Overview
The family of this 66-nucleotide RNA from Tunturiibacter empetritectus is "Fluoride riboswitch aptamer (crcB RNA motif)". The family's consensus secondary structure is taken from published work. Lineage of the source: Bacteria > Acidobacteriota > Terriglobia > Acidobacteriaceae > Tunturiibacter.
RNA sequence: UAGACGCAUGGGAAUGAGGUCUCCCAAAACCGCCGUAAGCACCCGGCUGAUGACCUCUGCCAAUUC
Number, nucleotide and partner (000 for none) at each position: 001u000002a000003g000004a000005c000006g000007c000008a000009u000010g025011g024012g023013a022014a000015u000016g057017a056018g055019g054020u053021c052022u013023c012024c011025c010026a000027a000028a000029a000030c000031c000032g047033c046034c045035g044036u000037a000038a000039g000040c000041a000042c000043c000044c035045g034046g033047c032048u000049g000050a000051u000052g021053a020054c019055c018056u017057c016058u000059g000060c000061c000062a000063a000064u000065u000066c000